[Rfam]
RNA sequence: CACAUCGAUAGAGGUCGCGACUGAUAUGAGUUUAUGCCGAGCUGGAGCACAGCUAAGACGCAUAAAUAAUGAGAAGUCGCCGAAAGGUUUUUGACGCUCAUCAAAAAUCUUGGGCUAGUGGGAAACACUCACUAGACUGUCGCCAUGACAUAGACAUGGUGGGGGGCUAUUCGUUCA
Numbered sequence: 001c002a003c004a005u006c007g008a009u010a011g012a013g014g015u016c017g018c019g020a021c022u023g024a025u026a027u028g029a030g031u032u033u034a035u036g037c038c039g040a041g042c043u044g045g046a047g048c049a050c051a052g053c054u055a056a057g058a059c060g061c062a063u064a065a066a067u068a069a070u071g072a073g074a075a076g077u078c079g080c081c082g083a084a085a086g087g088u089u090u091u092u093g094a095c096g097c098u099c100a101u102c103a104a105a106a107a108u109c110u111u112g113g114g115c116u117a118g119u120g121g122g123a124a125a126c127a128c129u130c131a132c133u134a135g136a137c138u139g140u141c142g143c144c145a146u147g148a149c150a151u152a153g154a155c156a157u158g159g160u161g162g163g164g165g166g167c168u169a170u171u172c173g174u175u176c177a
Base pairs, nucleotide, nucleotide: 007171008170009169010168011167017080018079019078020077021076022075025072031066032065033064034063035062036061037060084111085110086109087108088107089106090105091104092103093102094101112138113137115135116134117133118132119131120130121129122128140162141161142160143159144158145157146156

Rfam assigns this 177-nucleotide RNA from Lactococcus allomyrinae to the family "Lysine riboswitch aptamer". The organism belongs to Lactococcus, within Bacteria. The family's consensus secondary structure is taken from published work. On this family, see Mandal et al., Cell 2003: "Riboswitches Control Fundamental Biochemical Pathways in Bacillus subtilis and Other Bacteria".